[Rfam]
RNase MRP: a 255-nucleotide RNA from Gymnodraco acuticeps. The family's RNA type in Rfam is ribozyme. The base pairs follow the family's consensus structure, which is taken from published work. It scores 146 bits against the family's covariance model.

RNA sequence: GGGCAUUCAGAAGGCUUGCUAUCUGGGCUACUAGCUGGGAACUUGUUUCUCCACUUCGCCCAGGGGAAAGUCCCCGGACAUAUGGCAGAGAGUGUCCUGGUUGAAAUCAGUAUCGGCUUGCGCUUACCGUUCAUUAGCUGAGACGUUCUCGCGAACAGAGCUUGGUGAUCGCGAGCCGACUUUGUCAGCGUUACUAGUAAUGCAAGUGAGCUGAAACUCACGCGGAAACAGAACGGGGCUCAUUCUCGGAAUGUC
Numbered sequence: 001g002g003g004c005a006u007u008c009a010g011a012a013g014g015c016u017u018g019c020u021a022u023c024u025g026g027g028c029u030a031c032u033a034g035c036u037g038g039g040a041a042c043u044u045g046u047u048u049c050u051c052c053a054c055u056u057c058g059c060c061c062a063g064g065g066g067a068a069a070g071u072c073c074c075c076g077g078a079c080a081u082a083u084g085g086c087a088g089a090g091a092g093u094g095u096c097c098u099g100g101u102u103g104a105a106a107u108c109a110g111u112a113u114c115g116g117c118u119u120g121c122g123c124u125u126a127c128c129g130u131u132c133a134u135u136a137g138c139u140g141a142g143a144c145g146u147u148c149u150c151g152c153g154a155a156c157a158g159a160g161c162u163u164g165g166u167g168a169u170c171g172c173g174a175g176c177c178g179a180c181u182u183u184g185u186c187a188g189c190g191u192u193a194c195u196a197g198u199a200a201u202g203c204a205a206g207u208g209a210g211c212u213g214a215a216a217c218u219c220a221c222g223c224g225g226a227a228a229c230a231g232a233a234c235g236g237g238g239c240u241c242a243u244u245c246u247c248g249g250a251a252u253g254u255c
Stems, first nucleotide, its partner, number of pairs: 002255007010247002014207006022064007037051005069240002072238004084096004097110005113179003117175006124168004136162003145156004210223002